Shown here is a 76-nucleotide RNA from Jacana jacana, a member of the family "Small nucleolar RNA SNORD69". For this family Rfam cites "RNomics: an experimental approach that identifies 201 candidates for novel, small, non-messenger RNAs in mouse" (Huttenhofer et al., EMBO J, 2001). The pairing is the family consensus, mapped onto this sequence. Rfam classes the family as a C/D-box small nucleolar RNA.
RNA sequence: CACACAAAGCAUGUGAUGAGAAAACACUGAAACUGACUGUAUGAAGGACAUUCAGUCCAACACUGAGCUCUGUGUC
Numbered sequence: 001c002a003c004a005c006a007a008a009g010c011a012u013g014u015g016a017u018g019a020g021a022a023a024a025c026a027c028u029g030a031a032a033c034u035g036a037c038u039g040u041a042u043g044a045a046g047g048a049c050a051u052u053c054a055g056u057c058c059a060a061c062a063c064u065g066a067g068c069u070c071u072g073u074g075u076c
Stems, first nucleotide, its partner, number of pairs: 002075005008069003

Rfam describes the family as follows. snoRNA HBII-210 belongs to the C/D family of snoRNAs. It is the human orthologue of the mouse MBII-210 and is predicted to guide the 2'O-ribose methylation of large 28S rRNA on residue G4464.
The match comes from Rfam's covariance-model search (39 bits).